Rfam assigns this 153-nucleotide RNA sequence from Glycine soja to the family "MIR4371 microRNA precursor family". It scores 118 bits against the family's covariance model.
RNA sequence: CCAUUAAGUGAUGACGUGACAGACAUGGUGUUAUGUCAUCACGCUUAAUCACUGAUACUUCAUUGUCACGUCAUGUGAUAAUAUGAUAAUGAGGUGUUCGUGAUAAGGUGUGAUGAUGCGACAUUUCAUCUGUCAUGUCAUUACUUAAUGAAA
Number, nucleotide and partner (000 for none) at each position: 001c000002c150003a149004u148005u147006a146007a145008g144009u143010g142011a141012u140013g139014a138015c137016g136017u135018g134019a133020c132021a131022g130023a129024c000025a000026u000027g125028g124029u123030g122031u121032u120033a000034u118035g117036u116037c115038a114039u113040c112041a111042c110043g109044c108045u107046u106047a000048a104049u103050c102051a101052c100053u000054g098055a097056u096057a095058c094059u000060u000061c000062a000063u000064u000065g000066u000067c000068a000069c000070g082071u081072c000073a079074u078075g000076u000077g000078a074079u073080a000081a071082u070083a000084u000085g000086a000087u000088a000089a000090u000091g000092a000093g000094g058095u057096g056097u055098u054099c000100g052101u051102g050103a049104u048105a000106a046107g045108g044109u043110g042111u041112g040113a039114u038115g037116a036117u035118g034119c000120g032121a031122c030123a029124u028125u027126u000127c000128a000129u023130c022131u021132g020133u019134c018135a017136u016137g015138u014139c013140a012141u011142u010143a009144c008145u007146u006147a005148a004149u003150g002151a000152a000153a000
The family has 4 seed sequences and 321 matches in Rfam 15.1. Lineage of the source: Eukaryota > Streptophyta > Spermatophyta > Gunneridae > Glycine subgen. Soja.